[Rfam]
A member of the RNA family "Small nucleolar RNA SNORD24" from Chlamydomonas eustigma, 78 nucleotides long. The match comes from Rfam's covariance-model search (60 bits). The family has 14 seed sequences and 2,843 matches in Rfam 15.1.
RNA sequence: GGCCAAUGAUGCAUUCAUAAUAUUUGCUACUCUCGAGUUAAUCGAUGACGACAUACAUCACCAAGAUCGCUGAUGGCC
Numbered sequence: 001g002g003c004c005a006a007u008g009a010u011g012c013a014u015u016c017a018u019a020a021u022a023u024u025u026g027c028u029a030c031u032c033u034c035g036a037g038u039u040a041a042u043c044g045a046u047g048a049c050g051a052c053a054u055a056c057a058u059c060a061c062c063a064a065g066a067u068c069g070c071u072g073a074u075g076g077c078c
Stems, first nucleotide, its partner, number of pairs: 001078004
Record summary
Rfam classes the family as a C/D-box small nucleolar RNA. The base pairs follow the family's consensus structure, which was predicted with PFOLD.